[Rfam]
RNA sequence: UGAUACCGCGCGGGAGAGACCUCGGCAACGAGGCGCCGACGGGGCAAUACUCCCCAGUAACCUCUCAGGCACCAUGGACCGCGCGGAGUAG
Dot-bracket structure: .....((((((((......((((......)))).(((((..(((...(........)....))))).)))........)))))))).....
Numbered sequence: 001u002g003a004u005a006c007c008g009c010g011c012g013g014g015a016g017a018g019a020c021c022u023c024g025g026c027a028a029c030g031a032g033g034c035g036c037c038g039a040c041g042g043g044g045c046a047a048u049a050c051u052c053c054c055c056a057g058u059a060a061c062c063u064c065u066c067a068g069g070c071a072c073c074a075u076g077g078a079c080c081g082c083g084c085g086g087a088g089u090a091g
Stems, first nucleotide, its partner, number of pairs: 006086008020033004035070003038066002042064003048057001
Glycine riboswitch aptamer: a 91-nucleotide RNA from Nocardiopsis eucommiae.
Rfam links the family to the GO term glycine biosynthetic process.
Taxonomically the source falls in Nocardiopsis (Bacteria, Actinomycetes, Streptosporangiales, Nocardiopsidaceae).
From the family's description: This family represents the bacterial glycine riboswitch.